[Rfam]
Rfam assigns this 88-nucleotide RNA to the family "freshwater-2 RNA". The family's consensus secondary structure is taken from published work.
RNA sequence: UUUUACAUCUCGUAAAAGACUUAUGCAGAUAACAACUGCGUACCUAGGAGAACUAGGAUUGGACUCCUUUAAAGGAGGAAACAAAAUG
Numbered sequence: 001u002u003u004u005a006c007a008u009c010u011c012g013u014a015a016a017a018g019a020c021u022u023a024u025g026c027a028g029a030u031a032a033c034a035a036c037u038g039c040g041u042a043c044c045u046a047g048g049a050g051a052a053c054u055a056g057g058a059u060u061g062g063a064c065u066c067c068u069u070u071a072a073a074g075g076a077g078g079a080a081a082c083a084a085a086a087u088g
Stems, first nucleotide, its partner, number of pairs: 001017006022042007043057004